[Rfam]
RNA: Small nucleolar RNA SNORD73
Organism: Pangasianodon hypophthalmus
RNA sequence: AAUGAGUGAUGACGGUAAGUUUUGGUCCCAGAUGAAGAGCAGUGAUUACUCUUAUGAGAUCUACUGACAUU
Numbered sequence: 001a002a003u004g005a006g007u008g009a010u011g012a013c014g015g016u017a018a019g020u021u022u023u024g025g026u027c028c029c030a031g032a033u034g035a036a037g038a039g040c041a042g043u044g045a046u047u048a049c050u051c052u053u054a055u056g057a058g059a060u061c062u063a064c065u066g067a068c069a070u071u
Base pairs, nucleotide, nucleotide: 001071002070003069004068